[Rfam]
RNA sequence: CCUCCCGCUUGCCUCCCUGAGCGGGUGCCUUUUGCUGACACUAAAGGCUGUUUACCCCGGCACCCAGGUGCCGGGGUUUUUUAU
Numbered sequence: 001c002c003u004c005c006c007g008c009u010u011g012c013c014u015c016c017c018u019g020a021g022c023g024g025g026u027g028c029c030u031u032u033u034g035c036u037g038a039c040a041c042u043a044a045a046g047g048c049u050g051u052u053u054a055c056c057c058c059g060g061c062a063c064c065c066a067g068g069u070g071c072c073g074g075g076g077u078u079u080u081u082u083a084u
Base pairs, nucleotide, nucleotide: 004025005024006023007022008021009020027048028047029046030045032044033043034042055076056075057074058073059072060071061070062069
RNA: Burkholderia RNA 7 (anti-hemB)